RNA sequence: UGCAAUCUUCAGGGCAGGGUGAAAGUCCCUACCGGCGGUACAGCCCGCGAGCGCCUCUCCCUCAGGGGAAGCGCAUGAUCAGGUGAAACUCCUGGGCCGACGGUCACAGUCCGGAUGUAAGAAGAUGCAG
Dot-bracket structure: ....((((((......(((.......))).[[((((((....[[))))..(((..................)))....(((((.......)))))]])).(((.....]]))).......))))))....